[Rfam]
RNA: mir-7383 microRNA precursor family
RNA sequence: CAAGGUACCUGAGGUCCUCUUAUUUUAUAUUGACUGUAAGAGGCUCCAGCUCCCUUUGU
Dot-bracket structure: .((((...(((.((.((((((((............)))))))))).)))...))))...